[Rfam]
RNA sequence: UAAGUCAGCGAGAACCAUAUGAAUCAAGUAGUGUAGUGAUUCAUAUGGUUCUCACAA
Numbered sequence: 001u002a003a004g005u006c007a008g009c010g011a012g013a014a015c016c017a018u019a020u021g022a023a024u025c026a027a028g029u030a031g032u033g034u035a036g037u038g039a040u041u042c043a044u045a046u047g048g049u050u051c052u053c054a055c056a057a
Base pairs, nucleotide, nucleotide: 008055010053011052012051013050014049015048016047017046018045019044020043021042022041023040024039025038026037
RNA: Plastid-ccsA-ndhD-1 3UTR RNA